[Rfam]
RNA: xerDC RNA
RNA sequence: GAUCCCAUUGCCGGAGGGAUCAACGGACACAUGCAGCCGUCGCGCUGCAGCCGAGUUCAGCGGCCGUGUCCACCGUUGCCCGCCAGGGCAGGAGUCUUUUGGCUCCAAAACGGUUUCGUACUGACC
Numbered sequence: 001g002a003u004c005c006c007a008u009u010g011c012c013g014g015a016g017g018g019a020u021c022a023a024c025g026g027a028c029a030c031a032u033g034c035a036g037c038c039g040u041c042g043c044g045c046u047g048c049a050g051c052c053g054a055g056u057u058c059a060g061c062g063g064c065c066g067u068g069u070c071c072a073c074c075g076u077u078g079c080c081c082g083c084c085a086g087g088g089c090a091g092g093a094g095u096c097u098u099u100u101g102g103c104u105c106c107a108a109a110a111c112g113g114u115u116u117c118g119u120a121c122u123g124a125c126c
Base pairs, nucleotide, nucleotide: 001021002020003019004018005017006016008015009014025071026070027069028068029067030066033048034047035046036045037044050064051063052062053061072114073113074112075111076110078089079088080087081086091106093104094103095102